[Rfam]
RNA sequence: GAAAUCGACACGGGGUGCUGCUUGUGUGGCAGCUGAGAACACACCCGUCGAACCUGAUCCUGGUCGUGCCGGCGAAGGGAAUGUCGAGAUGCGCAGAG
Numbered sequence: 001g002a003a004a005u006c007g008a009c010a011c012g013g014g015g016u017g018c019u020g021c022u023u024g025u026g027u028g029g030c031a032g033c034u035g036a037g038a039a040c041a042c043a044c045c046c047g048u049c050g051a052a053c054c055u056g057a058u059c060c061u062g063g064u065c066g067u068g069c070c071g072g073c074g075a076a077g078g079g080a081a082u083g084u085c086g087a088g089a090u091g092c093g094c095a096g097a098g
Base pairs, nucleotide, nucleotide: 006086007085008084009083010082011047012046013045014044016041017033018032019031020030021029053078054077055076059072060071062069
RNA: TPP riboswitch aptamer (THI element)
Organism: Myceligenerans xiligouense